RNA sequence: GGGGGUGGAUGAGUUCUGGUGUGCUCUCUGGUCUUCAAAACCUGUAUGAGGGGUUAGGAGCCUCUCGGGUGGGUUCGAUUCCCACACAUCCCC
Numbered sequence: 001g002g003g004g005g006u007g008g009a010u011g012a013g014u015u016c017u018g019g020u021g022u023g024c025u026c027u028c029u030g031g032u033c034u035u036c037a038a039a040a041c042c043u044g045u046a047u048g049a050g051g052g053g054u055u056a057g058g059a060g061c062c063u064c065u066c067g068g069g070u071g072g073g074u075u076c077g078a079u080u081c082c083c084a085c086a087c088a089u090c091c092c093c
Base pairs, nucleotide, nucleotide: 001093002092003091004090005089006088007087008085011026012025013024014023016021028044030042031041032040047067048066049065050064051063070084071083072082073081
About this RNA:
The family of this 93-nucleotide sequence from Clostridiaceae bacterium JG1575 is "Selenocysteine transfer RNA". A search with the family's covariance model found it, with a score of 68 bits. NCBI's taxonomy places the organism under Bacteria, Bacillati, Clostridia, Eubacteriales, Clostridiaceae. Gene Ontology term of the family: triplet codon-amino acid adaptor activity.